The family of this 73-nucleotide RNA is "L13-Bacteroidia ribosomal protein leader". The family's consensus secondary structure is taken from published work. Rfam classes the family as a cis-regulatory leader.

RNA sequence: GUGGCUCAUUUGCAGCCACACUCGCGUAUUAAUAGCCGGGUUUCAUUGGCCGAAAAACGGUGGUUAGUGAAUC
Numbered sequence: 001g002u003g004g005c006u007c008a009u010u011u012g013c014a015g016c017c018a019c020a021c022u023c024g025c026g027u028a029u030u031a032a033u034a035g036c037c038g039g040g041u042u043u044c045a046u047u048g049g050c051c052g053a054a055a056a057a058c059g060g061u062g063g064u065u066a067g068u069g070a071a072u073c
Base pairs, nucleotide, nucleotide: 001019002018003017004016005015006014029067030066031065032064033063035061036060037059038058041054042053043052